[Rfam]
Rfam assigns this 125-nucleotide RNA sequence from Kaustia mangrovi to the family "Manganese Mn2+ riboswitch aptamer (yybP-ykoY)". About the family: This RNA was originally discovered in E. coli during a large scale screen and was named SraF. The family was later found to exist upstream of related families of protein genes in many bacteria, including the the yybP and ykoK genes in B. subtilis. The specific functions of these proteins are unknown, but this structured RNA element may be involved in their genetic regulation as a riboswitch. The literature on the family includes a 2001 paper in Curr Biol by Argaman et al., "Novel small RNA-encoding genes in the intergenic regions of Escherichia coli". Lineage of the source: Bacteria > Pseudomonadati > Pseudomonadota > Parvibaculaceae > Kaustia. The family has 29 seed sequences and 1,126 matches in Rfam 15.1.
RNA sequence: CCACACGGGGAGUAGCGACCGUUCUCCCGGACCGGUUCCCGCUUUCAGGGACAGGUCCAUACGGGAUCGCAUCAACAUGCUCGCGACAUAUUGCGUGGUGCGAUCGGCCGGAUCCGAACCGGCUU
Numbered sequence: 001c002c003a004c005a006c007g008g009g010g011a012g013u014a015g016c017g018a019c020c021g022u023u024c025u026c027c028c029g030g031a032c033c034g035g036u037u038c039c040c041g042c043u044u045u046c047a048g049g050g051a052c053a054g055g056u057c058c059a060u061a062c063g064g065g066a067u068c069g070c071a072u073c074a075a076c077a078u079g080c081u082c083g084c085g086a087c088a089u090a091u092u093g094c095g096u097g098g099u100g101c102g103a104u105c106g107g108c109c110g111g112a113u114c115c116g117a118a119c120c121g122g123c124u125u
Base pairs, nucleotide, nucleotide: 020063021062022061065105066104067103068102069101070100071099072098073097074096082095083094084093085092086091